Annotation
The record is a 158-nucleotide RNA from Glycine max, which matches "MIR4371 microRNA precursor family" in Rfam. Its family is annotated with miRNA-mediated post-transcriptional gene silencing and RISC complex in the Gene Ontology. The family is grouped with related families in Rfam's "MIR4387 microRNA precursor clan". Pairs were carried over by alignment from the consensus structure, which was predicted with RNAalifold. The source organism's lineage runs through Eukaryota, Viridiplantae, rosids, Papilionoideae and Glycine subgen. Soja.
[Rfam]
RNA sequence: CCAUUAAGUGAUGACAUGACAGACAGAAUGUCAUGUUAUUACGUUUUGUCACGAACAUUUUAUUGUCACAUCAUUAUUUUCAAUGACGUGGUGUUUAUGUGUUAGUGAUUGGACGUGAUGAUGUGACACUCCGUUUAUCACAUCAUCACUUAAUGGAA
Numbered sequence: 001c002c003a004u005u006a007a008g009u010g011a012u013g014a015c016a017u018g019a020c021a022g023a024c025a026g027a028a029u030g031u032c033a034u035g036u037u038a039u040u041a042c043g044u045u046u047u048g049u050c051a052c053g054a055a056c057a058u059u060u061u062a063u064u065g066u067c068a069c070a071u072c073a074u075u076a077u078u079u080u081c082a083a084u085g086a087c088g089u090g091g092u093g094u095u096u097a098u099g100u101g102u103u104a105g106u107g108a109u110u111g112g113a114c115g116u117g118a119u120g121a122u123g124u125g126a127c128a129c130u131c132c133g134u135u136u137a138u139c140a141c142a143u144c145a146u147c148a149c150u151u152a153a154u155g156g157a158a
Stems, first nucleotide, its partner, number of pairs: 001156014017140003021136004026131002029128018048109005054103005071086004